[Rfam]
RNA sequence: GAAAUAUAAAAAACCCGACUGUUUUCCGGGUUUUUGUCAGGUAGUUGAUCACCUCAGAUAAAGGUGAAACGUGCCGUUGGGGGCGUCAUGACAUGAGCCACUGAAGCACGAGUAGGGGAAGUAGACCCUUCAUUCACUGGCCUAUACACGGGGGUUAUUUACCUCAAAAGCCCCAGAGCUGGGCUGGACUGCUCCGGGGCUUUUUC
Numbered sequence: 001g002a003a004a005u006a007u008a009a010a011a012a013a014c015c016c017g018a019c020u021g022u023u024u025u026c027c028g029g030g031u032u033u034u035u036g037u038c039a040g041g042u043a044g045u046u047g048a049u050c051a052c053c054u055c056a057g058a059u060a061a062a063g064g065u066g067a068a069a070c071g072u073g074c075c076g077u078u079g080g081g082g083g084c085g086u087c088a089u090g091a092c093a094u095g096a097g098c099c100a101c102u103g104a105a106g107c108a109c110g111a112g113u114a115g116g117g118g119a120a121g122u123a124g125a126c127c128c129u130u131c132a133u134u135c136a137c138u139g140g141c142c143u144a145u146a147c148a149c150g151g152g153g154g155u156u157a158u159u160u161a162c163c164u165c166a167a168a169a170g171c172c173c174c175a176g177a178g179c180u181g182g183g184c185u186g187g188a189c190u191g192c193u194c195c196g197g198g199g200c201u202u203u204u205u206c
Stems, first nucleotide, its partner, number of pairs: 009035009036141005046132003049067006070110005077105002080102002082099003086096004114129004151165005166204009176194004181190002